Glycine riboswitch aptamer: an 81-nucleotide sequence from Mesobacillus zeae.
The organism belongs to Mesobacillus, within Bacteria.
RNA sequence: GGAGCAGCUUCUGGAGAGACCGCAGGGUAUCUGCGGCGCCGAAGGGUUCACAAUCUCAGGCAAAAGGACAGAAGAGUACCG
Numbered sequence: 001g002g003a004g005c006a007g008c009u010u011c012u013g014g015a016g017a018g019a020c021c022g023c024a025g026g027g028u029a030u031c032u033g034c035g036g037c038g039c040c041g042a043a044g045g046g047u048u049c050a051c052a053a054u055c056u057c058a059g060g061c062a063a064a065a066g067g068a069c070a071g072a073a074g075a076g077u078a079c080c081g
Stems, first nucleotide, its partner, number of pairs: 008074006020036004038061003041057002045055003
A search with the family's covariance model found it, with a score of 52 bits.